[Rfam]
RNA: Glycine riboswitch aptamer
Organism: Neisseria leonii
RNA sequence: GACAGGAUUUCAGGAGAGAGCCGCAAGGCCGCCGAAGGCGCAAACACCCUAUAAUCGCUCAGGCAAAAGGACUGAAACCGUUUA
Numbered sequence: 001g002a003c004a005g006g007a008u009u010u011c012a013g014g015a016g017a018g019a020g021c022c023g024c025a026a027g028g029c030c031g032c033c034g035a036a037g038g039c040g041c042a043a044a045c046a047c048c049c050u051a052u053a054a055u056c057g058c059u060c061a062g063g064c065a066a067a068a069g070g071a072c073u074g075a076a077a078c079c080g081u082u083u084a
Stems, first nucleotide, its partner, number of pairs: 006079001008077006020029003031064003034060002038058003044052001